[Rfam]
RNA sequence: AGAGUAGGCGUAGGUGGUUACAGACUAGUUGUAAUGACUGGUUUGAGGAAAGUCCGGGCUCCCGAAAGACCAGACUUGCUGGGUAACGCCCAGUGCGCGUGAGCGUGAGGAUAGUGCCACAGAAACAUACCGCCUUUCUUUCAGUUAACAGUUAACAGUCAACAGGUAACUGUAGCCCAUGAGGGCGUGGUGUCAGCCAUAAACUGUUAGCUUUGCGUGCGCGUUAGUAAGGCGUUAGCAAGCACAGGGCGCAAGCCAUAAACUGAUAACUGGUCACUGAAAAAGGUAAGGGUGCAAAGGUGAGGUAAGAGCUCACCAGCAACAUCGAGAGGUGUUGGCUCGGUAAACCCCGGUUGGGUGCAAGGUAAAGGAACCACGGUUGGUCUUUUCCCAGUUCCGCAAUUAAGAGCCGCUAGAGGUGUUUGGUAACAGACAUCCCAGAUAGAUGACCGCCCUCAAAAUUUAUGGAUAUAGUAUGCUGUGUCCGUAAAUAAGAGAACAGAACCCGGCUUAUGUUCCGACUCUCUUC
Numbered sequence: 001a002g003a004g005u006a007g008g009c010g011u012a013g014g015u016g017g018u019u020a021c022a023g024a025c026u027a028g029u030u031g032u033a034a035u036g037a038c039u040g041g042u043u044u045g046a047g048g049a050a051a052g053u054c055c056g057g058g059c060u061c062c063c064g065a066a067a068g069a070c071c072a073g074a075c076u077u078g079c080u081g082g083g084u085a086a087c088g089c090c091c092a093g094u095g096c097g098c099g100u101g102a103g104c105g106u107g108a109g110g111a112u113a114g115u116g117c118c119a120c121a122g123a124a125a126c127a128u129a130c131c132g133c134c135u136u137u138c139u140u141u142c143a144g145u146u147a148a149c150a151g152u153u154a155a156c157a158g159u160c161a162a163c164a165g166g167u168a169a170c171u172g173u174a175g176c177c178c179a180u181g182a183g184g185g186c187g188u189g190g191u192g193u194c195a196g197c198c199a200u201a202a203a204c205u206g207u208u209a210g211c212u213u214u215g216c217g218u219g220c221g222c223g224u225u226a227g228u229a230a231g232g233c234g235u236u237a238g239c240a241a242g243c244a245c246a247g248g249g250c251g252c253a254a255g256c257c258a259u260a261a262a263c264u265g266a267u268a269a270c271u272g273g274u275c276a277c278u279g280a281a282a283a284a285g286g287u288a289a290g291g292g293u294g295c296a297a298a299g300g301u302g303a304g305g306u307a308a309g310a311g312c313u314c315a316c317c318a319g320c321a322a323c324a325u326c327g328a329g330a331g332g333u334g335u336u337g338g339c340u341c342g343g344u345a346a347a348c349c350c351c352g353g354u355u356g357g358g359u360g361c362a363a364g365g366u367a368a369a370g371g372a373a374c375c376a377c378g379g380u381u382g383g384u385c386u387u388u389u390c391c392c393a394g395u396u397c398c399g400c401a402a403u404u405a406a407g408a409g410c411c412g413c414u415a416g417a418g419g420u421g422u423u424u425g426g427u428a429a430c431a432g433a434c435a436u437c438c439c440a441g442a443u444a445g446a447u448g449a450c451c452g453c454c455c456u457c458a459a460a461a462u463u464u465a466u467g468g469a470u471a472u473a474g475u476a477u478g479c480u481g482u483g484u485c486c487g488u489a490a491a492u493a494a495g496a497g498a499a500c501a502g503a504a505c506c507c508g509g510c511u512u513a514u515g516u517u518c519c520g521a522c523u524c525u526c527u528u529c
Stems, first nucleotide, its partner, number of pairs: 001525005007519002010516001012514001013454007021045009050512003054509005059360001061358002068392001073355003077352002079093005094108001095106004109350002114348002116344003130291002132287006139280002299317006319339001320337007364411003372404002377399001383397001386394002418437008

This 529-nucleotide RNA from Mastigocoleus testarum belongs to the Rfam family "Bacterial RNase P class A".
The base pairs follow the family's consensus structure, which is taken from published work.
The match comes from Rfam's covariance-model search (230 bits).
Taxonomically the source falls in Mastigocoleus testarum (Bacteria, Cyanobacteriota, Cyanophyceae, Nostocales).